This 88-nucleotide RNA from Coptis chinensis belongs to the Rfam family "MIR2275 microRNA precursor family". The source organism's lineage runs through Eukaryota, Streptophytina, Embryophyta, Magnoliopsida and Coptis. The family has 13 seed sequences and 785 matches in Rfam 15.1.

RNA sequence: GAGCCGAAUGUGAGAAUUGGAGGAAAUUGAACCCAUGCCCCGGUUCGUACAUUGGGUUCAAUUUCCUUCAAUAUCUCAUGUUCUGCCU
Number, nucleotide and partner (000 for none) at each position: 001g000002a000003g000004c085005c000006g083007a082008a081009u000010g000011u078012g077013a076014g075015a000016a072017u071018u070019g069020g068021a067022g000023g065024a064025a063026a062027u061028u060029g059030a058031a000032c056033c055034c000035a000036u000037g000038c000039c000040c000041c000042g000043g000044u000045u000046c000047g000048u000049a000050c000051a000052u000053u000054g000055g033056g032057u000058u030059c029060a028061a027062u026063u025064u024065c023066c000067u021068u020069c019070a018071a017072u016073a000074u000075c014076u013077c012078a011079u000080g000081u008082u007083c006084u000085g004086c000087c000088u000